[Rfam]
RNA sequence: GAGAUAAAGAAGAAGCACCCGCUUCUCACCUGAUUGACGCCAAAGUGCAGUUGGCAGGUUUUACGAAAAGGCUUAUUACCGUAUGGGUAUCGUAAAGUGUGGGUGCAUUCAUCCGCACUUUUUUAUUUUU
Numbered sequence: 001g002a003g004a005u006a007a008a009g010a011a012g013a014a015g016c017a018c019c020c021g022c023u024u025c026u027c028a029c030c031u032g033a034u035u036g037a038c039g040c041c042a043a044a045g046u047g048c049a050g051u052u053g054g055c056a057g058g059u060u061u062u063a064c065g066a067a068a069a070g071g072c073u074u075a076u077u078a079c080c081g082u083a084u085g086g087g088u089a090u091c092g093u094a095a096a097g098u099g100u101g102g103g104u105g106c107a108u109u110c111a112u113c114c115g116c117a118c119u120u121u122u123u124u125a126u127u128u129u130u
Stems, first nucleotide, its partner, number of pairs: 011026006028059003036052003039048002098117008
This 130-nucleotide RNA from Bacillus sp. Y1 belongs to the Rfam family "Ribosomal protein L20 leader". By type it is a cis-regulatory leader. The source organism's lineage runs through Bacteria, Bacillota, Caryophanales, Bacillaceae and Bacillus. This family is a putative r-protein leader autoregulatory structure found in B. subtilis and other low-GC Gram-positive bacteria. It is located in the 5' untranslated regions of mRNAs encoding initiation factor 3 followed by ribosomal proteins L35 and L20 (infC-rpmI-rplT). A Rho-independent transcription terminator structure that is probably involved in regulation is included at the 3' end.